Rfam assigns this 139-nucleotide RNA sequence from Macaca mulatta to the family "Small nucleolar RNA SNORA64/SNORA10 family". The family's RNA type in Rfam is H/ACA-box small nucleolar RNA. Pairs were carried over by alignment from the consensus structure, which is taken from published work. About the family: This family belongs to the H/ACA class of small nucleolar RNAs (snoRNAs) which act as guides in the the modification of uridines to pseudouridines. This family includes the human snoRNAs U64 and ACA10 and mouse MBI-29. A reference for the family is Narayanan et al. (1999), "Nucleolar localization signals of box H/ACA small nucleolar RNAs", EMBO J. The match comes from Rfam's covariance-model search (59 bits). NCBI's taxonomy places the organism under Eukaryota, Boreoeutheria, Primates, Haplorrhini, Macaca.
RNA sequence: CUUCCCUCAGCUCUGCAUAAUUAAGUUAUACUUGGCUUCACCCAUUUGACUUCUGCAACAGGGAGAGAGAGAAAAGAUGUCCGUGGCGCAUCAGAUUAGCCUUAUGGUGGUCUCUCUCUCCUUGAAGGGCACAACAGAU
Numbered sequence: 001c002u003u004c005c006c007u008c009a010g011c012u013c014u015g016c017a018u019a020a021u022u023a024a025g026u027u028a029u030a031c032u033u034g035g036c037u038u039c040a041c042c043c044a045u046u047u048g049a050c051u052u053c054u055g056c057a058a059c060a061g062g063g064a065g066a067g068a069g070a071g072a073a074a075a076g077a078u079g080u081c082c083g084u085g086g087c088g089c090a091u092c093a094g095a096u097u098a099g100c101c102u103u104a105u106g107g108u109g110g111u112c113u114c115u116c117u118c119u120c121c122u123u124g125a126a127g128g129g130c131a132c133a134a135c136a137g138a139u
Stems, first nucleotide, its partner, number of pairs: 002071003006067003011063005019051001021049006080128002085122002093117003099111003